[Rfam]
RNA sequence: UGGACCAAUGAUGAUGACUGGUGGAGUAGGAGUCAUGGACGAUGAAAAUACGUGUCUGAAACUCUGAGGUCCAA
Numbered sequence: 001u002g003g004a005c006c007a008a009u010g011a012u013g014a015u016g017a018c019u020g021g022u023g024g025a026g027u028a029g030g031a032g033u034c035a036u037g038g039a040c041g042a043u044g045a046a047a048a049u050a051c052g053u054g055u056c057u058g059a060a061a062c063u064c065u066g067a068g069g070u071c072c073a074a
Stems, first nucleotide, its partner, number of pairs: 002072005
Rfam assigns this 74-nucleotide RNA from Diceros bicornis to the family "Small nucleolar RNA SNORD113/SNORD114 family". The match comes from Rfam's covariance-model search (82 bits). Rfam classes the family as a C/D-box small nucleolar RNA. About the family: The imprinted human domain at 14q32 contains two clusters of tandemly repeated small nucleolar RNAs named 14q(I) and 14q(II) snoRNAs. These two clusters are named SNORD113 and SNORD114 respectively in the HGNC approved gene symbol nomenclature. The snoRNAs found in both clusters are clearly related and are represented here by a single family. These snoRNAs are intron encoded and are processed from the tissue-specific non-coding human MEG8 RNA, which lies downstream of the imprinted genes DLK1 and GTL2. snoRNAs 14q(I) and 14q(II) differ from previously identified C/D box snoRNAs in their expression profiles and lack of complementarity to rRNA and snRNA. Homologues of these snoRNAs are found in the imprinted non-coding mouse transcript Rian, and in the rat non-coding Bsr (brain-specific repetitive) RNA. Gene Ontology terms of the family: nucleolus and RNA processing. Its Rfam clan is "SNORD74 clan".